The family of this 93-nucleotide RNA from Zea mays is "mir-166 microRNA precursor family". This family represents the plant microRNA (miRNA) precursor mir-166. The source organism's lineage runs through Eukaryota, Streptophyta, Tracheophyta, Poales and Zea. On this family, see Reinhart et al., Genes Dev 2002: "MicroRNAs in plants".
RNA sequence: GUUGAGGGGAAUGUCGUCUGGCGCGAGACCGUACCAGACGACGUGCUCUCUCGGUCGUCGGACGGUCUCGGACCAGGCUUCAUUCCCCCCAAC
Numbered sequence: 001g002u003u004g005a006g007g008g009g010a011a012u013g014u015c016g017u018c019u020g021g022c023g024c025g026a027g028a029c030c031g032u033a034c035c036a037g038a039c040g041a042c043g044u045g046c047u048c049u050c051u052c053g054g055u056c057g058u059c060g061g062a063c064g065g066u067c068u069c070g071g072a073c074c075a076g077g078c079u080u081c082a083u084u085c086c087c088c089c090c091a092a093c
Base pairs, nucleotide, nucleotide: 001093002092003091004090006088007087008086009085010084011083012082013081016078017077018076019075020074021073024070025069026068